[Rfam]
RNA sequence: UGGAAGUUCAUUUGUAAGUCCCUUUGGAUAAAAGCGUCUGCAAAAUGACUAAAU
Dot-bracket structure: ............((((...(.((((.....)))).)..))).)...........
RNA: UnaL2 LINE 3' element